[Rfam]
RNA sequence: UGAUACCAGGGUCAAAAGGUCAGAAAGCCGAUGCAAGCUUGCUUGCAAGAGGAUUUUUGACCUCUUGACCCGCCAAAAAGCAUGAGUAAGUAGCCAUUUUUCAAAGAAAAAUGAGCGGAUUACGAAUGUUUUUGAGGAUUGCGGGAAUUGCAAGACAGUCCAAAAAAUCU
Numbered sequence: 001u002g003a004u005a006c007c008a009g010g011g012u013c014a015a016a017a018g019g020u021c022a023g024a025a026a027g028c029c030g031a032u033g034c035a036a037g038c039u040u041g042c043u044u045g046c047a048a049g050a051g052g053a054u055u056u057u058u059g060a061c062c063u064c065u066u067g068a069c070c071c072g073c074c075a076a077a078a079a080g081c082a083u084g085a086g087u088a089a090g091u092a093g094c095c096a097u098u099u100u101u102c103a104a105a106g107a108a109a110a111a112u113g114a115g116c117g118g119a120u121u122a123c124g125a126a127u128g129u130u131u132u133u134g135a136g137g138a139u140u141g142c143g144g145g146a147a148u149u150g151c152a153a154g155a156c157a158g159u160c161c162a163a164a165a166a167a168u169c170u
Stems, first nucleotide, its partner, number of pairs: 010070004017063010028052002032048001033046005076133008086123004093116002095113008136170005147159004

Annotation
A member of the RNA family "Clostridiales-1 RNA" from Allocoprococcus comes, 170 nucleotides long. Rfam classes the family as a small RNA.